[Rfam]
RNA sequence: UGACUGUUUCAAAAGCUUAUAUUGUUCGUUCAAAGUUACUUAUAAGCUCGUGAUCAACAGGCAGGA
Numbered sequence: 001u002g003a004c005u006g007u008u009u010c011a012a013a014a015g016c017u018u019a020u021a022u023u024g025u026u027c028g029u030u031c032a033a034a035g036u037u038a039c040u041u042a043u044a045a046g047c048u049c050g051u052g053a054u055c056a057a058c059a060g061g062c063a064g065g066a
Stems, first nucleotide, its partner, number of pairs: 001063002004060005009053003014048008024039002

mir-231 microRNA precursor family: a 66-nucleotide RNA from Caenorhabditis brenneri. The sequence is in the family's curated seed alignment. Gene Ontology terms of the family: RISC complex and miRNA-mediated post-transcriptional gene silencing. Taxonomically the source falls in Caenorhabditis (Eukaryota, Protostomia, Rhabditomorpha, Rhabditidae).